Record summary: Shown here is a 125-nucleotide RNA sequence from Martinezella rhizogenes, a member of the family "Alphaproteobacterial ar14". It is annotated as a small RNA. Taxonomically the source falls in Martinezella rhizogenes (Bacteria, Hyphomicrobiales, Rhizobiaceae, Martinezella). Rfam's curators put it in the seed alignment.
RNA sequence: GAAUUUCAGACGGCCCACUCCUCCUCCCAGGGACGUCUGUAGGAACAGCGACACUCCUCCUCCCAGUCGCUGUUCGGUUCUUUUCGAAAAACCUGCCGCACCUCCUCCCGCGGCAGGUUUUUUCG
Numbered sequence: 001g002a003a004u005u006u007c008a009g010a011c012g013g014c015c016c017a018c019u020c021c022u023c024c025u026c027c028c029a030g031g032g033a034c035g036u037c038u039g040u041a042g043g044a045a046c047a048g049c050g051a052c053a054c055u056c057c058u059c060c061u062c063c064c065a066g067u068c069g070c071u072g073u074u075c076g077g078u079u080c081u082u083u084u085c086g087a088a089a090a091a092c093c094u095g096c097c098g099c100a101c102c103u104c105c106u107c108c109c110g111c112g113g114c115a116g117g118u119u120u121u122u123u124c125g
Stems, first nucleotide, its partner, number of pairs: 007039006014032003043075010089120011